This 118-nucleotide sequence from Carlito syrichta belongs to the Rfam family "Small nucleolar RNA SNORA9".

[Rfam]
RNA sequence: UAGCAAGGCUCAAGUGUGCCUGGGUCUGCUGUGACCCUGUGCAUUCCUACAGUUUUGAGACAGUUUGAGGACUUGCCCUGCUCCAUCCAGAGCAAGGUUAUAGAAAUUUCAGACAAUC
Numbered sequence: 001u002a003g004c005a006a007g008g009c010u011c012a013a014g015u016g017u018g019c020c021u022g023g024g025u026c027u028g029c030u031g032u033g034a035c036c037c038u039g040u041g042c043a044u045u046c047c048u049a050c051a052g053u054u055u056u057g058a059g060a061c062a063g064u065u066u067g068a069g070g071a072c073u074u075g076c077c078c079u080g081c082u083c084c085a086u087c088c089a090g091a092g093c094a095a096g097g098u099u100a101u102a103g104a105a106a107u108u109u110c111a112g113a114c115a116a117u118c
Stems, first nucleotide, its partner, number of pairs: 017043003022037005056111005072096005078090003
About the family: ACA9 is a member of the H/ACA class of snoRNA that guide the sites of modification of uridines to pseudouridines. Pairs were carried over by alignment from the consensus structure, which was predicted with PFOLD. The family is grouped with related families in Rfam's "SNORA9 clan".